Shown here is a 72-nucleotide RNA sequence from Nocardiopsis gilva, a member of the family "Actino-pnp RNA". It scores 65 bits against the family's covariance model. NCBI's taxonomy places the organism under Bacteria, Bacillati, Actinomycetes, Nocardiopsidaceae, Nocardiopsis gilva. The base pairs follow the family's consensus structure, which is taken from published work.

RNA sequence: GCCGGUCCUCGGUAGUGGUCUUCGGCUCGCCCCCCAGCGGAGGCGCGCCGAGGGCUUCGAUCGAUGACCGGU
Numbered sequence: 001g002c003c004g005g006u007c008c009u010c011g012g013u014a015g016u017g018g019u020c021u022u023c024g025g026c027u028c029g030c031c032c033c034c035c036a037g038c039g040g041a042g043g044c045g046c047g048c049c050g051a052g053g054g055c056u057u058c059g060a061u062c063g064a065u066g067a068c069c070g071g072u
Stems, first nucleotide, its partner, number of pairs: 001072007009064005017056010